[Rfam]
RNA sequence: GGAGUCGGACAGGCUGUCGCCGCGGGGAAACCCGGGGAGGAAAGUCCGGACUCCGCAGGGCAGGACGCUGGGUAACCCCCAGGGGGAGCGAUCCCCGGAGAAGCGCCACAGAAAGCAAACCGCCGGCCGGGUCCACCCGGCCGGUAAGGGUGAAACGGUGGAGUAAGAGCCCACCAGUUGCCGCGGUGACGCGGCAAGCUAGGCAUGCCCCGUCCGGAGCAAGACCAAAUAGGGAAGCGUUCGAGGCCGGCCCGGCCGAGCUUCCGGGUAGGUUGCUGGAGGCGGCGGGCAACCGCCGUCCUAGAGGAAUGACAGCCGCCGUCCCGCAAGGGGCGGUUACAGAAUCCGGCUUACGUCCGGCUCCCCUU
Numbered sequence: 001g002g003a004g005u006c007g008g009a010c011a012g013g014c015u016g017u018c019g020c021c022g023c024g025g026g027g028a029a030a031c032c033c034g035g036g037g038a039g040g041a042a043a044g045u046c047c048g049g050a051c052u053c054c055g056c057a058g059g060g061c062a063g064g065a066c067g068c069u070g071g072g073u074a075a076c077c078c079c080c081a082g083g084g085g086g087a088g089c090g091a092u093c094c095c096c097g098g099a100g101a102a103g104c105g106c107c108a109c110a111g112a113a114a115g116c117a118a119a120c121c122g123c124c125g126g127c128c129g130g131g132u133c134c135a136c137c138c139g140g141c142c143g144g145u146a147a148g149g150g151u152g153a154a155a156c157g158g159u160g161g162a163g164u165a166a167g168a169g170c171c172c173a174c175c176a177g178u179u180g181c182c183g184c185g186g187u188g189a190c191g192c193g194g195c196a197a198g199c200u201a202g203g204c205a206u207g208c209c210c211c212g213u214c215c216g217g218a219g220c221a222a223g224a225c226c227a228a229a230u231a232g233g234g235a236a237g238c239g240u241u242c243g244a245g246g247c248c249g250g251c252c253c254g255g256c257c258g259a260g261c262u263u264c265c266g267g268g269u270a271g272g273u274u275g276c277u278g279g280a281g282g283c284g285g286c287g288g289g290c291a292a293c294c295g296c297c298g299u300c301c302u303a304g305a306g307g308a309a310u311g312a313c314a315g316c317c318g319c320c321g322u323c324c325c326g327c328a329a330g331g332g333g334c335g336g337u338u339a340c341a342g343a344a345u346c347c348g349g350c351u352u353a354c355g356u357c358c359g360g361c362u363c364c365c366c367u368u
Base pairs, nucleotide, nucleotide: 001364002363003362004361005360006359007358008357009356010355012317013316014315015314016313017312018311020037021036023034024033025032026031042352043351044350046349047348048347049346050345051219052218053217054216058253059252060251061250063215064214065213066212067211068082069081070080071079072078084095085094086093087092098210103208104207105204106203107202120149121148122145123144124143125142126141127140128139129138130137157175158174159173160172161171177199178197179196180195181194182193183192184191185190223274224273225272226271233265234264235263236262237261238260245257246256247255248254281300282299283298284297285296286295287294288293
This 368-nucleotide RNA from Fundidesulfovibrio magnetotacticus belongs to the Rfam family "Bacterial RNase P class A". The base pairs follow the family's consensus structure, which is taken from published work. Ribonuclease P (RNase P) is a ubiquitous endoribonuclease, found in archaea, bacteria and eukarya as well as chloroplasts and mitochondria. By type it is a ribozyme.